[Rfam]
RNA sequence: ACGGCUGCGGGCGGCGGCGACAGACGUGCCCGCAGCACCAGACAGAACACCGUGUCUCGGAACAUUCGGGGCACUUCUGGGCGUU
Numbered sequence: 001a002c003g004g005c006u007g008c009g010g011g012c013g014g015c016g017g018c019g020a021c022a023g024a025c026g027u028g029c030c031c032g033c034a035g036c037a038c039c040a041g042a043c044a045g046a047a048c049a050c051c052g053u054g055u056c057u058c059g060g061a062a063c064a065u066u067c068g069g070g071g072c073a074c075u076u077c078u079g080g081g082c083g084u085u
Stems, first nucleotide, its partner, number of pairs: 004036010015026002052074008
Rfam assigns this 85-nucleotide RNA sequence from Streptomyces sp. SAT1 to the family "nrdJ RNA". The match comes from Rfam's covariance-model search (62 bits). The family's RNA type in Rfam is small RNA. NCBI's taxonomy places the organism under Bacteria, Bacillati, Actinomycetota, Streptomycetaceae, Streptomyces.